The family of this 266-nucleotide RNA from Mesobacillus campisalis is "Bacterial large signal recognition particle RNA". The family's RNA type in Rfam is non-coding RNA gene. The source organism's lineage runs through Bacteria, Bacillota, Bacilli, Bacillaceae and Mesobacillus. The family is grouped with related families in Rfam's "SRP clan". The match comes from Rfam's covariance-model search (180 bits).
RNA sequence: CCGUGCUAGAUGGGGAGUUGGCGGUGCCCUGUAACCCGCAAUCCGCCAUAGCGGGGUUGAAUUCCUGUCCGAGGCCGAAGGGUUCCUGGUCUGCCUUGUAAAAAGUCGGCGUUGACAAUUGGGUCCUGCGCAAUAGACAGCUGUGAACGGGUCAGAGCCGGAAGGCAGCAGCCAUAAGCAGUUUUCUCUAUGUGCCGCAGGGUUGCCUAAUCGAGCUGAAUUUUACAAGUAACGCUUGGAUGUUUCGUCCGGAGGCAGGUGCACGG
Numbered sequence: 001c002c003g004u005g006c007u008a009g010a011u012g013g014g015g016a017g018u019u020g021g022c023g024g025u026g027c028c029c030u031g032u033a034a035c036c037c038g039c040a041a042u043c044c045g046c047c048a049u050a051g052c053g054g055g056g057u058u059g060a061a062u063u064c065c066u067g068u069c070c071g072a073g074g075c076c077g078a079a080g081g082g083u084u085c086c087u088g089g090u091c092u093g094c095c096u097u098g099u100a101a102a103a104a105g106u107c108g109g110c111g112u113u114g115a116c117a118a119u120u121g122g123g124u125c126c127u128g129c130g131c132a133a134u135a136g137a138c139a140g141c142u143g144u145g146a147a148c149g150g151g152u153c154a155g156a157g158c159c160g161g162a163a164g165g166c167a168g169c170a171g172c173c174a175u176a177a178g179c180a181g182u183u184u185u186c187u188c189u190a191u192g193u194g195c196c197g198c199a200g201g202g203u204u205g206c207c208u209a210a211u212c213g214a215g216c217u218g219a220a221u222u223u224u225a226c227a228a229g230u231a232a233c234g235c236u237u238g239g240a241u242g243u244u245u246c247g248u249c250c251g252g253a254g255g256c257a258g259g260u261g262c263a264c265g266g
Stems, first nucleotide, its partner, number of pairs: 001266006009058003012030004017025003035055005064259006073250002076247002079244002082241004088235001092231002097227006105221002108217003116213001118211007125201006131192002134190004139183006150173003157166003